[Rfam]
RNA: Plant signal recognition particle RNA
Organism: Raphanus sativus
RNA sequence: GUCGAGCUUGGUAACGCGGGCUUGUAAUCCAAGUGGAGACUACGAGUUGAUGGUACAUUGGGCCGAUUUCUUUGGGCCGGGUUCAGAUGGGCUAUCUACUGGCCUGCCCAUUCCAAGUCGGGAGUUGAGUGUGUUCGUACUCGAGCGAAGGCAUGUGGUUCGGACACUCUUAGAGCGGAGGAGACUGCGUGAGGCUGGUUUCACAGAGCAGCGUCCACCUCCCGCUCUUGACGGUGGAAGGAUAAUAGGCCGGGGCCUCCCGAACCCACCAUGACCCAAUAAGCCGAUCCAAUUGGACCACAACUUU
Number, nucleotide and partner (000 for none) at each position: 001g040002u039003c038004g023005a022006g021007c020008u019009u018010g017011g000012u000013a000014a000015c000016g000017c010018g009019g008020g007021c006022u005023u004024g000025u000026a000027a000028u037029c036030c035031a000032a000033g000034u000035g030036g029037a028038g003039a002040c001041u000042a000043c000044g306045a305046g304047u303048u302049g301050a000051u300052g299053g298054u000055a000056c295057a294058u292059u291060g290061g288062g000063c286064c000065g284066a000067u000068u000069u282070c000071u000072u279073u278074g277075g276076g275077c000078c273079g267080g266081g265082u264083u263084c262085a000086g260087a000088u000089g258090g257091g256092c000093u255094a000095u000096c000097u000098a000099c253100u252101g251102g250103c249104c248105u247106g246107c000108c241109c240110a000111u239112u238113c237114c236115a235116a000117g232118u231119c230120g229121g228122g227123a226124g225125u224126u000127g169128a168129g167130u166131g165132u164133g000134u000135u163136c162137g161138u000139a159140c158141u157142c155143g154144a000145g152146c151147g000148a000149a000150g000151g146152c145153a000154u143155g142156u000157g141158g140159u139160u000161c137162g136163g135164a132165c131166a130167c129168u128169c127170u175171u000172a000173g000174a000175g170176c000177g222178g221179a220180g219181g218182a000183g000184a000185c000186u000187g214188c213189g212190u211191g000192a000193g000194g000195c206196u205197g204198g000199u000200u000201u000202c000203a000204c197205a196206g195207a000208g000209c000210a000211g190212c189213g188214u187215c000216c000217a000218c181219c180220u179221c178222c177223c000224g125225c124226u123227c122228u121229u120230g119231a118232c117233g000234g000235u115236g114237g113238a112239a111240g109241g108242a000243u000244a000245a000246u106247a105248g104249g103250c102251c101252g100253g099254g000255g093256c091257c090258u089259c000260c086261c000262g084263a083264a082265c081266c080267c079268a000269c000270c000271a000272u000273g078274a000275c076276c075277c074278a073279a072280u000281a000282a069283g000284c065285c000286g063287a000288u061289c000290c060291a059292a058293u000294u057295g056296g000297a000298c053299c052300a051301c049302a048303a047304c046305u045306u044307u000